Rfam assigns this 52-nucleotide RNA sequence from Methanohalobium evestigatum to the family "eL15-Euryarchaeota ribosomal protein leader".
The literature on the family includes a 2020 paper in BMC Microbiol by Eckert and Weinberg, "Discovery of 20 novel ribosomal leader candidates in bacteria and archaea".
Lineage of the source: Archaea > Methanomicrobia > Methanosarcinales > Methanohalobium > Methanohalobium evestigatum.
The base pairs follow the family's consensus structure, which is taken from published work.
RNA sequence: ACGGGAUGUUAUCCCGUCGGAAUGUGACUCAAAAUAUGAGUUGAACCAUGAA
Numbered sequence: 001a002c003g004g005g006a007u008g009u010u011a012u013c014c015c016g017u018c019g020g021a022a023u024g025u026g027a028c029u030c031a032a033a034a035u036a037u038g039a040g041u042u043g044a045a046c047c048a049u050g051a052a
Stems, first nucleotide, its partner, number of pairs: 001017005019047002026042005